The record is a 65-nucleotide sequence from Chlorocebus sabaeus, which matches "U7 small nuclear RNA" in Rfam. The family has 49 seed sequences and 10,439 matches in Rfam 15.1. The base pairs follow the family's consensus structure, which was predicted with PFOLD. The match comes from Rfam's covariance-model search (48 bits).

RNA sequence: AAGUGUUAAAGUUCUUUUAGAAUUUUCCUAGUAGGUUUUUUCAGUUUUCACCAGAAGACACCCCC
Number, nucleotide and partner (000 for none) at each position: 001a000002a000003g000004u000005g000006u000007u000008a000009a000010a000011g000012u000013u000014c000015u000016u000017u000018u000019a000020g000021a000022a000023u000024u000025u000026u000027c000028c000029u000030a000031g000032u000033a000034g062035g061036u060037u058038u057039u056040u055041u054042c000043a000044g051045u050046u000047u000048u000049c000050a045051c044052c000053a000054g041055a040056a039057g038058a037059c000060a036061c035062c034063c000064c000065c000